Shown here is a 114-nucleotide sequence from Plantimonas leprariae, a member of the family "Alphaproteobacterial ar14".
The family's RNA type in Rfam is small RNA.
The literature on the family includes a 2012 paper in RNA Biol by del Val et al., "A survey of sRNA families in alpha-proteobacteria".
[Rfam]
RNA sequence: GCGAAUGGAGCCUGCGGAUCCUCCUCCCACUGCAGGUUCGGAGGCCUUCGAACCUCCUCCCAUCGAAGGCCGUCAAACGACACCCGCCGGUUCCUCCCCCGGCGGGUGUUGUCG
Numbered sequence: 001g002c003g004a005a006u007g008g009a010g011c012c013u014g015c016g017g018a019u020c021c022u023c024c025u026c027c028c029a030c031u032g033c034a035g036g037u038u039c040g041g042a043g044g045c046c047u048u049c050g051a052a053c054c055u056c057c058u059c060c061c062a063u064c065g066a067a068g069g070c071c072g073u074c075a076a077a078c079g080a081c082a083c084c085c086g087c088c089g090g091u092u093c094c095u096c097c098c099c100c101g102g103c104g105g106g107u108g109u110u111g112u113c114g
Stems, first nucleotide, its partner, number of pairs: 008039002011036007043071009080109011

The source organism's lineage runs through Bacteria, Alphaproteobacteria, Hyphomicrobiales, Aurantimonadaceae and Plantimonas. Rfam's curators write: Smr14C2 was renamed NfeR1 (Nodule Formation Efficiency RNA) highly expressed in salt stress and during the symbiotic interaction on legume roots.